A member of the RNA family "Streptomyces sRNA scr5239" from Streptomyces sp. ICBB 8177, 179 nucleotides long.
Rfam links the family to the GO terms negative regulation of translation and mRNA binding.
Pairs were carried over by alignment from the consensus structure, which is taken from published work.
The match comes from Rfam's covariance-model search (81 bits).
Rfam classes the family as a small RNA.
[Rfam]
RNA sequence: CCUCCGUCCUCCCCGCACAGGAGGGCGGAUCGAGGCCACCGGCGCUCUCUGCCCUGACUGCGUCGCGGCCUCCCACCCGGUCGGCAUCCCGGCCGCGGGGACCGCACACCCCGCGCCACCGGCGCCGACGGCAGCUGAGGGCUGCGGUGCCGCGAGGGCUGAGGGUCCCUUGCCGGCGC
Numbered sequence: 001c002c003u004c005c006g007u008c009c010u011c012c013c014c015g016c017a018c019a020g021g022a023g024g025g026c027g028g029a030u031c032g033a034g035g036c037c038a039c040c041g042g043c044g045c046u047c048u049c050u051g052c053c054c055u056g057a058c059u060g061c062g063u064c065g066c067g068g069c070c071u072c073c074c075a076c077c078c079g080g081u082c083g084g085c086a087u088c089c090c091g092g093c094c095g096c097g098g099g100g101a102c103c104g105c106a107c108a109c110c111c112c113g114c115g116c117c118a119c120c121g122g123c124g125c126c127g128a129c130g131g132c133a134g135c136u137g138a139g140g141g142c143u144g145c146g147g148u149g150c151c152g153c154g155a156g157g158g159c160u161g162a163g164g165g166u167c168c169c170u171u172g173c174c175g176g177c178g179c
Base pairs, nucleotide, nucleotide: 003029004028005027006026008024009023010022011021012020032072033071034070035069037068040065041064042063044061045060046057047056078127079126080125081124134148135147136146139143152173153172154171155170156169157168158167